[Rfam]
Nucleotides: 099
Stems, first nucleotide, its partner, number of pairs: 004091008022041006042054001044052003065075003
Number, partner (000 for none) and nucleotide at each position: 001000u002000a003000a004091g005090g006089c007088g008087a009086a010085g011084a012000u013000a014000a015000a016000a017000a018000c019000a020000c021000a022041g023040u024039c025038c026037g027036g028000u029000u030000g031000g032000u033000a034000g035000u036027c037026c038025g039024g040023a041022c042054c043000g044052g045051c046050c047000a048000c049000u050046g051045g052044c053000a054042g055000a056000a057000g058000u059000a060000a061000c062000c063000u064000u065075c066074c067073c068000u069000c070000c071000u072000c073067g074066g075065g076000u077000c078000g079000u080000c081000c082000g083000u084011u085010c086009u087008u088007c089006g090005u091004u092000u093000g094000u095000a096000a097000a098000a099000u